Rfam assigns this 177-nucleotide RNA sequence from Lachnospiraceae bacterium TWA4 to the family "Group II catalytic intron D1-D4-3". NCBI's taxonomy places the organism under Bacteria, Bacillati, Bacillota, Clostridia, Lachnospiraceae. Group II introns are found in rRNA, tRNA and mRNA of organelles in fungi, plants and protists, and also in mRNA in bacteria.
Nucleotides: 177
Stems, first nucleotide, its partner, number of pairs: 001016006028177001031174001034170002039164006045155005061150006072142003076138001079135003083131001085113004091106004
Number, partner (000 for none) and nucleotide at each position: 001016u002015c003014c004013a005012u006011c007000g008000u009000g010000a011006g012005g013004u014003g015002g016001a017000a018000u019000c020000u021000g022000a023000a024000g025000g026000a027000g028177u029000u030000g031174a032000a033000g034170g035169c036000a037000a038000a039164c040163u041162a042161u043160c044159g045155a046154c047153c048152u049151g050000a051000c052000g053000a054000a055000c056000a057000g058000a059000a060000a061150u062149c063148a064147c065146a066145u067000a068000u069000a070000a071000g072142g073141c074140u075000a076138c077000g078000a079135c080134c081133c082000g083131a084000g085113g086112g087111a088110u089000a090000a091106g092105u093104u094103g095000g096000c097000u098000g099000a100000a101000u102000a103094c104093a105092a106091c107000g108000a109000a110088g111087u112086c113085c114000g115000a116000u117000a118000g119000u120000u121000a122000u123000c124000a125000c126000g127000u128000u129000u130000g131083u132000a133081g134080g135079g136000a137000a138076g139000a140074a141073g142072u143000a144000g145066a146065u147064g148063u149062g150061g151049c152048a153047g154046g155045u156000a157000c158000a159044u160043g161042a162041u163040a164039g165000g166000a167000a168000a169035g170034u171000g172000u173000g174031u175000a176000c177028a